[Rfam]
RNA sequence: CCUCCCGUUUCACCUCCCUGAGCGGGUGCCUUGCGUGUGAUAGCACAAAGGCUUCUCGCCCCGGCCGCGCGCCGGGGCUUUUUUAU
Numbered sequence: 001c002c003u004c005c006c007g008u009u010u011c012a013c014c015u016c017c018c019u020g021a022g023c024g025g026g027u028g029c030c031u032u033g034c035g036u037g038u039g040a041u042a043g044c045a046c047a048a049a050g051g052c053u054u055c056u057c058g059c060c061c062c063g064g065c066c067g068c069g070c071g072c073c074g075g076g077g078c079u080u081u082u083u084u085a086u
Stems, first nucleotide, its partner, number of pairs: 004026006028052004035046003058078008